The family of this 48-nucleotide sequence from Corynebacterium occultum is "Guanidine-II riboswitch aptamer (mini-ykkC)".
Its family is annotated with regulation of gene expression in the Gene Ontology.
The organism belongs to Corynebacterium, within Bacteria.
About the family: Simpler in structure and has fewer highly conserved nucleotide positions than the ykkC-yxkD leader.
The base pairs follow the family's consensus structure, which is taken from published work.
A reference for the family is Huang et al. (2017), "The Structure of the Guanidine-II Riboswitch", Cell Chem Biol.
RNA sequence: CACCCGGGACGACCCGGUGUGGCCCCAGUACUGACGGGGACGGCCCCG
Numbered sequence: 001c002a003c004c005c006g007g008g009a010c011g012a013c014c015c016g017g018u019g020u021g022g023c024c025c026c027a028g029u030a031c032u033g034a035c036g037g038g039g040a041c042g043g044c045c046c047c048g
Base pairs, nucleotide, nucleotide: 001019002018004017005016006015007014008013035048036047037046038045039044